This 84-nucleotide RNA sequence from Bombyx mori belongs to the Rfam family "mir-2807 microRNA precursor family". Taxonomically the source falls in Bombyx (Eukaryota, Panarthropoda, Endopterygota, Amphiesmenoptera). A reference for the family is Liu et al. (2010), "MicroRNAs of Bombyx mori identified by Solexa sequencing", BMC Genomics.
[Rfam]
RNA sequence: UUAACUCAACUUUGUAUGCAGUUGGAACAGCGCCCCUAGCGGCAAACGUAGCCAAAUGUUCCAACUCUAUUCAAAUUUAAGUUA
Numbered sequence: 001u002u003a004a005c006u007c008a009a010c011u012u013u014g015u016a017u018g019c020a021g022u023u024g025g026a027a028c029a030g031c032g033c034c035c036c037u038a039g040c041g042g043c044a045a046a047c048g049u050a051g052c053c054a055a056a057u058g059u060u061c062c063a064a065c066u067c068u069a070u071u072c073a074a075a076u077u078u079a080a081g082u083u084a
Stems, first nucleotide, its partner, number of pairs: 008078002011075004016070001018068001020066010035051001039047001